[Rfam]
Clostridiales-2 RNA: an 82-nucleotide RNA from Natronincola peptidivorans. Pairs were carried over by alignment from the consensus structure, which is taken from published work. The match comes from Rfam's covariance-model search (64 bits). Taxonomically the source falls in Natronincola (Bacteria, Bacillota, Clostridia, Natronincolaceae). Rfam 15.1 lists 285 matches to the family in 26 species.
RNA sequence: UAGACAUGGGGAGUGCAGAGGGGUUUCCCCUCGCUGGUUUAAGGGGGGUGCUCAGGCUGCGAUAGCAGGCGUCGAAGGGGGA
Numbered sequence: 001u002a003g004a005c006a007u008g009g010g011g012a013g014u015g016c017a018g019a020g021g022g023g024u025u026u027c028c029c030c031u032c033g034c035u036g037g038u039u040u041a042a043g044g045g046g047g048g049u050g051c052u053c054a055g056g057c058u059g060c061g062a063u064a065g066c067a068g069g070c071g072u073c074g075a076a077g078g079g080g081g082a
Stems, first nucleotide, its partner, number of pairs: 015034002018032005055070001057068003